[Rfam]
RNA sequence: UGCUUAUUUUGCCCAGGCGGAGCUCGACCGCCGCAACAAACCCUGAACGCCUUCGUUGACGAGUACCGUGACCGUUACGGGGUCGAGUCGAUCUGCCGCGUGGUGCAGAUCGCUCCG
Numbered sequence: 001u002g003c004u005u006a007u008u009u010u011g012c013c014c015a016g017g018c019g020g021a022g023c024u025c026g027a028c029c030g031c032c033g034c035a036a037c038a039a040a041c042c043c044u045g046a047a048c049g050c051c052u053u054c055g056u057u058g059a060c061g062a063g064u065a066c067c068g069u070g071a072c073c074g075u076u077a078c079g080g081g082g083u084c085g086a087g088u089c090g091a092u093c094u095g096c097c098g099c100g101u102g103g104u105g106c107a108g109a110u111c112g113c114u115c116c117g
Stems, first nucleotide, its partner, number of pairs: 016032005078117005089112002092109005